[Rfam]
RNA sequence: UAUUUGACAACGGGGAGCUCCUGUUAGGGGCUGAGAAAGGGCUAGUGAGCACCUGACCCGCUGAACCUGUUCAGGAUAAUGCCUGCGGAGGGAAAAGAAAGCCGGUGAUUU
Numbered sequence: 001u002a003u004u005u006g007a008c009a010a011c012g013g014g015g016a017g018c019u020c021c022u023g024u025u026a027g028g029g030g031c032u033g034a035g036a037a038a039g040g041g042c043u044a045g046u047g048a049g050c051a052c053c054u055g056a057c058c059c060g061c062u063g064a065a066c067c068u069g070u071u072c073a074g075g076a077u078a079a080u081g082c083c084u085g086c087g088g089a090g091g092g093a094a095a096a097g098a099a100a101g102c103c104g105g106u107g108a109u110u111u
Stems, first nucleotide, its partner, number of pairs: 008097001011060004016054001017031005039052001041050002066091003072085004

Notes: Rfam assigns this 111-nucleotide RNA sequence from Thermanaeromonas sp. C210 to the family "TPP riboswitch aptamer (THI element)". Lineage of the source: Bacteria > Bacillati > Neomoorellales > Neomoorellaceae > Thermanaeromonas. It scores 63 bits against the family's covariance model.